[Rfam]
RNA sequence: UCGACAAAAGGCAAACCUAUCGAAAGGUAGGGACGCAAAGCCAUAGGGCCUUUCGCAAGAAUGGCAGCCUGGCCACCGAAA
Numbered sequence: 001u002c003g004a005c006a007a008a009a010g011g012c013a014a015a016c017c018u019a020u021c022g023a024a025a026g027g028u029a030g031g032g033a034c035g036c037a038a039a040g041c042c043a044u045a046g047g048g049c050c051u052u053u054c055g056c057a058a059g060a061a062u063g064g065c066a067g068c069c070u071g072g073c074c075a076c077c078g079a080a081a
Base pairs, nucleotide, nucleotide: 002078003077011036012035016031017030018029019028020027021026034067040073041072042071045070046069047068048065049064050063
The record is an 81-nucleotide sequence from Paenibacillus agri, which matches "c-di-GMP-I-GGC riboswitch aptamer" in Rfam. Clan: c-di-GMP_I riboswitch clan. The organism belongs to Paenibacillus, within Bacteria. The match comes from Rfam's covariance-model search (60 bits). Pairs were carried over by alignment from the consensus structure, which is taken from published work.